[Rfam]
RNA sequence: UGUGACACCCUUCAAAGGGGUUGUUCCCCAUCCAGGAGCUAUUUUACCCUAUACCAAUAC
Numbered sequence: 001u002g003u004g005a006c007a008c009c010c011u012u013c014a015a016a017g018g019g020g021u022u023g024u025u026c027c028c029c030a031u032c033c034a035g036g037a038g039c040u041a042u043u044u045u046a047c048c049c050u051a052u053a054c055c056a057a058u059a060c
Base pairs, nucleotide, nucleotide: 017045018044019043020042021041023039024038025037026036027035
Record summary
Shown here is a 60-nucleotide RNA from Kingdonia uniflora, a member of the family "Plastid-psbN 5UTR RNA". On this family, see Richter et al., Plant Commun 2023: "Retrograde signaling in plants: A critical review focusing on the GUN pathway and beyond". From the family's description: Plastid psbN is a non-coding RNA (ncRNA) recognised in plastids. It was reported as a conserved 11 stem-loop in the prime untranslated region (5UTR) of psbN genes. It has been reported that the motif is retained in a subset of mature transcripts in barley, which can suggests a possible role in transcript alternative 5 prime processing. NCBI's taxonomy places the organism under Eukaryota, Embryophyta, Tracheophyta, Euphyllophyta, Kingdonia. The family's RNA type in Rfam is cis-regulatory element.